[Rfam]
RNA sequence: GGCGCGGUGGGGUUAGACGUAUGGGGAUAAGUACCAGGGAAGCAAAGGACCCUGCCAAACCCCUCCAGCCUCCCGUCGGGGGGCCGUCGCUCACAUGGGUGAACUACGCCAACUGGGCUGGCUUGGUGGGGGGUUGUCUGGCAUAUGCUCGCCGCGACAACUCCAGACAUACCUCGGCCCCCGGCGGGACUCGCAAUCCCGACCGAGGGCCUAGCCAGCAAGGAAGACGACACCUUCCCG
Dot-bracket structure: ......((.(.....((((......................................................)))).........((((((....))))))..............(.(((...........................))).)......................(((((.(((.((((.......))))..))).)))))....).))..(((((.......)))))..
Streptomyces sRNA 4677: a 240-nucleotide RNA from Streptomyces sp. ISL-86. Rfam's curators write: Located in the intergenic region between anti-sigma factor SCO4677 gene and a putative regulatory protein gene SCO4676. scr4677 expression requires the SCO4677 activity and scr4677 sRNA itself seem to affect the levels of the SCO4676-associated transcripts. On this family, see Hindra et al., PLoS One 2014: "Complex intra-operonic dynamics mediated by a small RNA in Streptomyces coelicolor".